Source information: A member of the RNA family "MIR2655 microRNA precursor family" from Trifolium subterraneum, 252 nucleotides long. The family has 25 seed sequences and 892 matches in Rfam 15.1. A search with the family's covariance model found it, with a score of 128 bits.

[Rfam]
RNA sequence: CCCUUAUCUUUUAAAAGUUUCAAGUUGAUCCGUUAUCUUUUUUUUAGGUUUCAAGUUGGUCCCUUCCGUCAUUUUUUUUACGGUUACCUUUAAAUUUGGACACAUGUCAUAUGUCCAAGUGUGCCACGUGUCCAAAUUAGUUUGCCACAUGUCCAAAUUUAACAGAAAUAGUUACAAAAUUGACGGAAGGGACCAACUUGAAACUUAAAAUAAAGAUAAUGGACCAACUUGAAAUUUUUAAAAGAUAAGGGA
Number, nucleotide and partner (000 for none) at each position: 001c000002c250003c249004u248005u247006a246007u245008c244009u000010u000011u000012u000013a000014a000015a000016a000017g000018u000019u000020u000021c000022a000023a229024g228025u227026u000027g225028a000029u223030c000031c221032g220033u219034u218035a217036u216037c215038u214039u213040u212041u000042u210043u209044u000045u207046a206047g205048g000049u000050u000051u000052c000053a000054a000055g000056u000057u000058g000059g000060u000061c000062c000063c000064u000065u000066c000067c000068g000069u000070c000071a000072u000073u000074u000075u000076u000077u000078u000079u000080a000081c000082g000083g000084u000085u000086a000087c000088c000089u000090u000091u000092a000093a000094a000095u000096u000097u000098g000099g000100a000101c000102a000103c000104a000105u000106g000107u000108c000109a000110u000111a000112u000113g000114u000115c000116c000117a000118a000119g000120u000121g000122u000123g000124c000125c000126a000127c000128g000129u000130g000131u000132c000133c000134a000135a000136a000137u000138u000139a000140g000141u000142u000143u000144g000145c000146c000147a000148c000149a000150u000151g000152u000153c000154c000155a000156a000157a000158u000159u000160u000161a000162a000163c000164a000165g000166a000167a000168a000169u000170a000171g000172u000173u000174a000175c000176a000177a000178a000179a000180u000181u000182g000183a000184c000185g000186g000187a000188a000189g000190g000191g000192a000193c000194c000195a000196a000197c000198u000199u000200g000201a000202a000203a000204c000205u047206u046207a045208a000209a043210a042211u000212a040213a039214a038215g037216a036217u035218a034219a033220u032221g031222g000223a029224c000225c027226a000227a025228c024229u023230u000231g000232a000233a000234a000235u000236u000237u000238u000239u000240a000241a000242a000243a000244g008245a007246u006247a005248a004249g003250g002251g000252a000